Rfam assigns this 65-nucleotide RNA sequence from Rhodococcoides kyotonense to the family "Actino-pnp RNA". Pairs were carried over by alignment from the consensus structure, which is taken from published work.
[Rfam]
RNA sequence: GUCGGUCUUCGGUAGUGGCCUGUCGGAGGGUUCGCCCAUCCGACGGGCUUCGAUCGACGGCCGCC
Numbered sequence: 001g002u003c004g005g006u007c008u009u010c011g012g013u014a015g016u017g018g019c020c021u022g023u024c025g026g027a028g029g030g031u032u033c034g035c036c037c038a039u040c041c042g043a044c045g046g047g048c049u050u051c052g053a054u055c056g057a058c059g060g061c062c063g064c065c
Stems, first nucleotide, its partner, number of pairs: 001065001003063005009057005017049003021045007029037002